[Rfam]
RNA sequence: UUGCACUUAUGUAAUGAAAGGCUAUGUCAAAAUUGAGUGACAUAGUCUGUGAACAAGAGUGCAUAAACAAAUAGCUGUUAAAUCAGCAAGCGGCCAGACAACCGUUGGGAUAGAUCCACAGGUGAAGCGGAUUUUGCUCUGCUUUCAGCUACUAAAUCUAUCCUACAAAU
Numbered sequence: 001u002u003g004c005a006c007u008u009a010u011g012u013a014a015u016g017a018a019a020g021g022c023u024a025u026g027u028c029a030a031a032a033u034u035g036a037g038u039g040a041c042a043u044a045g046u047c048u049g050u051g052a053a054c055a056a057g058a059g060u061g062c063a064u065a066a067a068c069a070a071a072u073a074g075c076u077g078u079u080a081a082a083u084c085a086g087c088a089a090g091c092g093g094c095c096a097g098a099c100a101a102c103c104g105u106u107g108g109g110a111u112a113g114a115u116c117c118a119c120a121g122g123u124g125a126a127g128c129g130g131a132u133u134u135u136g137c138u139c140u141g142c143u144u145u146c147a148g149c150u151a152c153u154a155a156a157u158c159u160a161u162c163c164u165a166c167a168a169a170u
Stems, first nucleotide, its partner, number of pairs: 002063005010055003015052001017050001019048011107164008124145007
Shown here is a 170-nucleotide sequence from Microthlaspi erraticum, a member of the family "small nucleolar RNA snoR143". The family has 3 seed sequences and 660 matches in Rfam 15.1. Gene Ontology terms of the family: RNA processing and nucleolus. The literature on the family includes a 2009 paper in Nucleic Acids Res by Chen and Wu, "Mining small RNA sequencing data: a new approach to identify small nucleolar RNAs in Arabidopsis".